[Rfam]
Rfam assigns this 360-nucleotide RNA sequence from Acinetobacter populi to the family "transfer-messenger RNA". About the family: Bacterial tmRNA, also known as 10Sa RNA or SsrA, is named for its dual tRNA and mRNA-like properties. Its role is to liberate the mRNA from a stalled ribosome. To accomplish this part of the tmRNA is used as a reading frame that ends in a translation stop signal. The broken mRNA is replaced in the ribosome by the tmRNA and translation of the tmRNA leads to addition of a proteolysis tag to the incomplete protein enabling recognition by a protease. Recently a number of permuted tmRNA genes have been found encoded in two parts. tmRNAs have been identified in eubacteria and some chloroplasts but are absent from archaeal and eukaryote nuclear genomes. Its Rfam clan is "tRNA clan". Rfam links the family to the GO term RNA catabolic process.

RNA sequence: GGGGAUGUUAUUGGCUUCGACGCUGGUGAUGAAACUCAUAGAUGCAUGCCGAGAGCGCAUUUCCUCUCGUAAAUAAAAUUUGCAUUUUAAUAGUCGCAAACGACGAAUCUUACGCUCUAGCUGCCUAAGGGCAGCUUGUCCGCCUACUAGAAUACUUGUGGUCUGGUAGCCCGACUGAAGCGCACGCACACAAGUCCGUAUAAAGUUAAGCCUCGGGACUUUAUACCAAACUUAGAGGAUCGCGCUUUGUACCCUGUUCGUCGGGUCAUAAAGUGUUAAAACAAUAGACGAUAUCUAAGCAUGUAGUAUUCUCGAGUGUAGUGCUUGCGGACGGGGGUUCAACUCCCCCCAUCUCCACCA
Numbered sequence: 001g002g003g004g005a006u007g008u009u010a011u012u013g014g015c016u017u018c019g020a021c022g023c024u025g026g027u028g029a030u031g032a033a034a035c036u037c038a039u040a041g042a043u044g045c046a047u048g049c050c051g052a053g054a055g056c057g058c059a060u061u062u063c064c065u066c067u068c069g070u071a072a073a074u075a076a077a078a079u080u081u082g083c084a085u086u087u088u089a090a091u092a093g094u095c096g097c098a099a100a101c102g103a104c105g106a107a108u109c110u111u112a113c114g115c116u117c118u119a120g121c122u123g124c125c126u127a128a129g130g131g132c133a134g135c136u137u138g139u140c141c142g143c144c145u146a147c148u149a150g151a152a153u154a155c156u157u158g159u160g161g162u163c164u165g166g167u168a169g170c171c172c173g174a175c176u177g178a179a180g181c182g183c184a185c186g187c188a189c190a191c192a193a194g195u196c197c198g199u200a201u202a203a204a205g206u207u208a209a210g211c212c213u214c215g216g217g218a219c220u221u222u223a224u225a226c227c228a229a230a231c232u233u234a235g236a237g238g239a240u241c242g243c244g245c246u247u248u249g250u251a252c253c254c255u256g257u258u259c260g261u262c263g264g265g266u267c268a269u270a271a272a273g274u275g276u277u278a279a280a281a282c283a284a285u286a287g288a289c290g291a292u293a294u295c296u297a298a299g300c301a302u303g304u305a306g307u308a309u310u311c312u313c314g315a316g317u318g319u320a321g322u323g324c325u326u327g328c329g330g331a332c333g334g335g336g337g338u339u340c341a342a343c344u345c346c347c348c349c350c351a352u353c354u355c356c357a358c359c360a
Stems, first nucleotide, its partner, number of pairs: 001356007021329003025325004030320001034317004040312003045303005050069005059080001061078002117138001119136006139184001141182003144169004149164003154195007198226009209240001211238004242276009252265003256295001258293001260289003333349005
Dot-bracket structure: (((((((.............(((.((((.(...((((..(((..((((((((((....[.[[..))))).......]].]....................................(.((((((......)))))).)[.[[[[[[[.[[[..(((((((.]]].]]]]..........]]].]....)))))))..(((((((((..[.[[[[...)))))))))........]]]].].(((((((((.(((.[.[.[[[)))..)))))))))..........]]]...].]...)))))......))).))))..).)))).)))...(((((.......))))))))))))....